[Rfam]
RNA sequence: CCAACUUCAGCUACAGUGAUAGCUAAGUCUG
Numbered sequence: 001c002c003a004a005c006u007u008c009a010g011c012u013a014c015a016g017u018g019a020u021a022g023c024u025a026a027g028u029c030u031g
Base pairs, nucleotide, nucleotide: 001031004028005027006026007025009024010023011022012021013020014018
RNA: Iron response element II
Organism: Megalops atlanticus